RNA sequence: UUAGUGGAUGCUUUAGCCAUUGAACUGUUUUGUCCCUCUCUGUUAAAGGACAAAUUGUUCUCUAUCAGAAGGUGACAGAACAGUUCAAUAGCUAAAGCGUCCACUAAC
Numbered sequence: 001u002u003a004g005u006g007g008a009u010g011c012u013u014u015a016g017c018c019a020u021u022g023a024a025c026u027g028u029u030u031u032g033u034c035c036c037u038c039u040c041u042g043u044u045a046a047a048g049g050a051c052a053a054a055u056u057g058u059u060c061u062c063u064a065u066c067a068g069a070a071g072g073u074g075a076c077a078g079a080a081c082a083g084u085u086c087a088a089u090a091g092c093u094a095a096a097g098c099g100u101c102c103a104c105u106a107a108c
Base pairs, nucleotide, nucleotide: 001107002106003105004104005103006102011097012096013095014094015093016092017091019089020088021087022086023085024084025083026082027081028080029069030068031067032066049059050058051057052056